[Rfam]
RNA sequence: UGGAAGCUCCAUCUAUAAAUGGAUAAUACUUUUGUAUGUAUAUGAAUUUUUGAAGGUAGCAAUCCCCCAAUAUAUUGGGGGAUUGCUACCUU
Numbered sequence: 001u002g003g004a005a006g007c008u009c010c011a012u013c014u015a016u017a018a019a020u021g022g023a024u025a026a027u028a029c030u031u032u033u034g035u036a037u038g039u040a041u042a043u044g045a046a047u048u049u050u051u052g053a054a055g056g057u058a059g060c061a062a063u064c065c066c067c068c069a070a071u072a073u074a075u076u077g078g079g080g081g082a083u084u085g086c087u088a089c090c091u092u
Stems, first nucleotide, its partner, number of pairs: 008023005053092013067078003
The record is a 92-nucleotide RNA from Dendrobium catenatum, which matches "Plastid-psbA-1 3UTR RNA" in Rfam. The family's consensus secondary structure was predicted with LocARNA. A reference for the family is Richter et al. (2023), "Retrograde signaling in plants: A critical review focusing on the GUN pathway and beyond", Plant Commun. Rfam's curators write: Plastid psbA-1 is a non-coding RNA (ncRNA) present in plastids. It was identified in inverted repeat sequences in the 3 prime untranslate region (3UTR) of photosystem II quinone-binding protein (psbA).